[Rfam]
RNA sequence: ACAGGCAACAAAAAGCCUGUUAAUCCCACGUGUUAAUAGCUGUAUCUAUUAAAGAAUUUGGCCUGAUGCAGUGGUUAGUGAAUC
Numbered sequence: 001a002c003a004g005g006c007a008a009c010a011a012a013a014a015g016c017c018u019g020u021u022a023a024u025c026c027c028a029c030g031u032g033u034u035a036a037u038a039g040c041u042g043u044a045u046c047u048a049u050u051a052a053a054g055a056a057u058u059u060g061g062c063c064u065g066a067u068g069c070a071g072u073g074g075u076u077a078g079u080g081a082a083u084c
Stems, first nucleotide, its partner, number of pairs: 001020006033078005039072008
Record summary: L13-Bacteroidia ribosomal protein leader: an 84-nucleotide sequence. By type it is a cis-regulatory leader. On this family, see Eckert and Weinberg, BMC Microbiol 2020: "Discovery of 20 novel ribosomal leader candidates in bacteria and archaea".